mir-4872 microRNA precursor family: a 76-nucleotide sequence from Branchiostoma floridae.

RNA sequence: UCACAAGUGGUGCCGGGGCGACAAAGCUCUGAGUUCUGUUAACAUCAGAGCUUUGUUGCCCCGACUCCUUCUGUGA
Dot-bracket structure: ((.((.(.((.(.((((.((((((((((((((((.......)).)))))))))))))).)))).).)).).)).))
Gene Ontology terms of the family: miRNA-mediated post-transcriptional gene silencing and RISC complex. A search with the family's covariance model found it, with a score of 82 bits. The family's consensus secondary structure was predicted with RNAalifold.